Shown here is a 112-nucleotide RNA sequence from Novosphingobium sp. AAP1, a member of the family "SAM-I/IV (S-adenosyl methionine) riboswitch aptamer".
RNA sequence: GGCCAGCAUCGAGAGUUGGGGGCGACGCCCCAACGCCAACCUGCCGGUUUCCGGGCAAGGUGGCGCUCCCUGACGGGAGGAUGUGGCCGAUCCGGCAACCAAGCGGAGCAAG
Numbered sequence: 001g002g003c004c005a006g007c008a009u010c011g012a013g014a015g016u017u018g019g020g021g022g023c024g025a026c027g028c029c030c031c032a033a034c035g036c037c038a039a040c041c042u043g044c045c046g047g048u049u050u051c052c053g054g055g056c057a058a059g060g061u062g063g064c065g066c067u068c069c070c071u072g073a074c075g076g077g078a079g080g081a082u083g084u085g086g087c088c089g090a091u092c093c094g095g096c097a098a099c100c101a102a103g104c105g106g107a108g109c110a111a112g
Base pairs, nucleotide, nucleotide: 006084007083008082009081010080015034016033017032018031019030020029035064036063037062040060041059042058043056044055045054049108050107051106086096087095088094089093
A reference for the family is Weinberg et al. (2008), "The aptamer core of SAM-IV riboswitches mimics the ligand-binding site of SAM-I riboswitches", RNA. Clan: SAM clan.